[Rfam]
RNA sequence: CCAAAGGCUCUUCUAAGAGCCACCCACAUUUGCAAUGACAAGUAC
Numbered sequence: 001c002c003a004a005a006g007g008c009u010c011u012u013c014u015a016a017g018a019g020c021c022a023c024c025c026a027c028a029u030u031u032g033c034a035a036u037g038a039c040a041a042g043u044a045c
Stems, first nucleotide, its partner, number of pairs: 006021006
A member of the RNA family "Histone 3' UTR stem-loop" from Conger conger, 45 nucleotides long. The family has 50 seed sequences and 44,596 matches in Rfam 15.1. The mRNAs of metazoan histone genes lack a poly-A tail. 3' end processing occurs at a site between a highly conserved stem-loop (modelled by this family) and a purine rich region around 20 nts downstream (the histone downstream element, or HDE). The stem-loop is bound by a 31 kDa stem-loop binding protein (SLBP - also termed the histone hairpin binding protein, or HBP). Together with U7 snRNA binding of the HDE, SLBP binding nucleate s the formation of the processing complex. The histone 3' UTR stem-loop is also involved in nucleocytoplasmic transport of the mRNA, and in stability regulation and translation efficiency in the cytoplasm. For this family Rfam cites "The sequence of the stem and flanking sequences at the 3' end of histone mRNA are critical determinants for the binding of the stem-loop binding protein" (Williams and Marzluff, Nucleic Acids Res, 1995).